Rfam assigns this 173-nucleotide RNA sequence from Clostridium collagenovorans to the family "Group II catalytic intron D1-D4-3".
RNA sequence: UCCACCGUGAGGUGGAAUCUGAAGGAAGUCGGCGGCAAAUCUCUGGUCUGACGGAUAGAAAUCACAUAUAAGGCAGUAUCUAUGGGUAAGGUUGCCAAACAAAUCAAAGCCCAAUAACUACUCGAAAAUAGGUAAUGUAAAUGUGGCAGAUAGAUGGAGAGAAAGAUUAGGCU
Numbered sequence: 001u002c003c004a005c006c007g008u009g010a011g012g013u014g015g016a017a018u019c020u021g022a023a024g025g026a027a028g029u030c031g032g033c034g035g036c037a038a039a040u041c042u043c044u045g046g047u048c049u050g051a052c053g054g055a056u057a058g059a060a061a062u063c064a065c066a067u068a069u070a071a072g073g074c075a076g077u078a079u080c081u082a083u084g085g086g087u088a089a090g091g092u093u094g095c096c097a098a099a100c101a102a103a104u105c106a107a108a109g110c111c112c113a114a115u116a117a118c119u120a121c122u123c124g125a126a127a128a129u130a131g132g133u134a135a136u137g138u139a140a141a142u143g144u145g146g147c148a149g150a151u152a153g154a155u156g157g158a159g160a161g162a163a164a165g166a167u168u169a170g171g172c173u
Base pairs, nucleotide, nucleotide: 001016002015003014004013005012006011028173030171036165040160041159042158043157044156045155046151047150048149049148050147062146063145064144065143066142067141073138074137075136077134078133079132080131081130082129083128084112085111086110087109090105091104092103093102
The organism belongs to Clostridium collagenovorans, within Bacteria.